Shown here is a 133-nucleotide RNA sequence from Jaculus jaculus, a member of the family "Small nucleolar RNA SNORA70". A reference for the family is Charette and Gray (2000), "Pseudouridine in RNA: what, where, how, and why", IUBMB Life. A search with the family's covariance model found it, with a score of 123 bits. Taxonomically the source falls in Jaculus (Eukaryota, Deuterostomia, Chordata, Dipnotetrapodomorpha). snoRNA U70 seems to be exclusive to mammals and is a member of the H/ACA class of snoRNA which contain H (ANANNA) and ACA box motifs. H/ACA box snoRNAs are involved in the conversion of uridines to pseudouridines (5-ribosyluracil) a constituent of structural RNAs (transfer, ribosomal, small nuclear, and small nucleolar).

RNA sequence: GUGCAGCCAAUUAAGCCGAUAGGGUUCCUUUCCUCACGGGGGCCCAGUGUGCAGUGGCUGCAGGCAGCAGCCUCUUUGGUAGUGUAGUAACCUGUUGCUUGUACAGUUGCCCUAAGGGACCUUGGAGACAGUU
Numbered sequence: 001g002u003g004c005a006g007c008c009a010a011u012u013a014a015g016c017c018g019a020u021a022g023g024g025u026u027c028c029u030u031u032c033c034u035c036a037c038g039g040g041g042g043c044c045c046a047g048u049g050u051g052c053a054g055u056g057g058c059u060g061c062a063g064g065c066a067g068c069a070g071c072c073u074c075u076u077u078g079g080u081a082g083u084g085u086a087g088u089a090a091c092c093u094g095u096u097g098c099u100u101g102u103a104c105a106g107u108u109g110c111c112c113u114a115a116g117g118g119a120c121c122u123u124g125g126a127g128a129c130a131g132u133u
Stems, first nucleotide, its partner, number of pairs: 002053004019048002022045001025042004078121003088109004093105001